[Rfam]
Nucleotides: 151
Stems, first nucleotide, its partner, number of pairs: 010034003018027001048061005077148015093133003096106003115130005
Number, partner (000 for none) and nucleotide at each position: 001000a002000a003000u004000u005000c006000a007000u008000u009000c010034g011033c012032a013000a014000a015000g016000u017000a018027a019000u020000u021000a022000u023000u024000c025000u026000a027018u028000g029000a030000a031000a032012u033011g034010c035000a036000a037000a038000u039000u040000a041000u042000c043000u044000u045000c046000a047000u048061a049060u050059g051058u052057u053000g054000u055000g056000a057052a058051a059050c060049a061048u062000a063000g064000c065000u066000u067000a068000a069000c070000c071000a072000c073000g074000u075000u076000a077148a078147a079146g080145u081144a082143u083142a084141a085140u086139a087138a088137u089136a090135u091134a092000a093133g094132u095131u096106a097105g098104g099000u100000a101000u102000g103000c104098c105097c106096u107000u108000a109000u110000a111000a112000a113000g114000a115130c116129u117128u118127a119126g120000g121000u122000a123000g124000c125000g126119c127118u128117a129116a130115g131095g132094a133093c134091u135090a136089u137088a138087u139086u140085a141084u142083u143082a144081u145080a146079c147078u148077u149000c150000u151000u